[Rfam]
RNA: Small nucleolar RNA snR48
RNA sequence: UCUACAUGAUGACACCAUAUAUUUUAUACUUUUCUUUCUGGCAUCUCUAAUGUUAGGGCAUCAAAUUGAUGUUCAAUGAAUACAACCAUUGACUUUGUCUGAAA
Numbered sequence: 001u002c003u004a005c006a007u008g009a010u011g012a013c014a015c016c017a018u019a020u021a022u023u024u025u026a027u028a029c030u031u032u033u034c035u036u037u038c039u040g041g042c043a044u045c046u047c048u049a050a051u052g053u054u055a056g057g058g059c060a061u062c063a064a065a066u067u068g069a070u071g072u073u074c075a076a077u078g079a080a081u082a083c084a085a086c087c088a089u090u091g092a093c094u095u096u097g098u099c100u101g102a103a104a
Base pairs, nucleotide, nucleotide: 057073058072059071060070